Nucleotides: 061
Stems, first nucleotide, its partner, number of pairs: 010025004016052006032042003
Number, partner (000 for none) and nucleotide at each position: 001000a002000g003000u004000a005000u006000u007000a008000a009000a010025g011024g012023c013022g014000a015000u016052g017051g018050a019049g020048u021047u022013c023012g024011c025010c026000u027000g028000a029000a030000c031000c032042g033041c034040u035000c036000c037000c038000c039000g040034a041033g042032c043000u044000a045000a046000u047021g048020a049019c050018u051017c052016c053000u054000a055000c056000c057000a058000g059000u060000u061000g